[Rfam]
RNA sequence: AAUUUCGAGUAAUCGCGGUCGGUCUUGAACCGGCUGAGGAAAGUCCACGCUCGCACAGGCUGCGAUGCCUGUAGUGUUCGCGCUUAGCCCAAUAAGCUAAGGUACUUCUUCGGAAGUAACGGCAGCCUAUUGACCUAACAUCUUUGGAUCAUGGUCAAGGCUUGAAGGUGCCACAGAGACGAAUCAUUUGCGAAAGUGAAUGAAUGGAACGGGUAAACCCCGCGAGCGAGCAACCCAAAUUUUGGUAGGGGAGUCCUACGGCGGCAAAUGAACCUAAAGUAGGAGCGGUAGCAGAUAGAUGAUUACUGAUGAUCGAGAUUGCCUAGUCUCGGUCGGAACAAAACGUGGCUUAUAGAA
Dot-bracket structure: ...(((((((((((.((((((.........))))))....[[[.[[[[[(((((((((((......)))))).....(((((((((((.......))))))(((((((....)))))).)((.((((....((((....((......))...))))..)))).....(((((...........((((((((....))))))))........)))..))))))))))))))...(((...........)))...((((((...................))))))((....))........)))))))..(((((((((((....)))))))))))........]]]]]]]].).)))
RNA: Bacterial RNase P class B